[Rfam]
RNA sequence: GCUUGUGGAACCUGCAUUGUACACACUGUGUGUGUCACUCAAACUUGCACAGCGCAUACAAUGUGGAUGCUAAAAGC
Numbered sequence: 001g002c003u004u005g006u007g008g009a010a011c012c013u014g015c016a017u018u019g020u021a022c023a024c025a026c027u028g029u030g031u032g033u034g035u036c037a038c039u040c041a042a043a044c045u046u047g048c049a050c051a052g053c054g055c056a057u058a059c060a061a062u063g064u065g066g067a068u069g070c071u072a073a074a075a076g077c
Base pairs, nucleotide, nucleotide: 012066013065015063016062017061018060019059020058021057024054026052027051028050029049030048031047
Background
The family of this 77-nucleotide RNA from Aquarana catesbeiana is "mir-460 microRNA precursor family". Taxonomically the source falls in Aquarana (Eukaryota, Metazoa, Vertebrata, Gnathostomata). The match comes from Rfam's covariance-model search (72 bits). The base pairs follow the family's consensus structure, which was predicted with RNAalifold.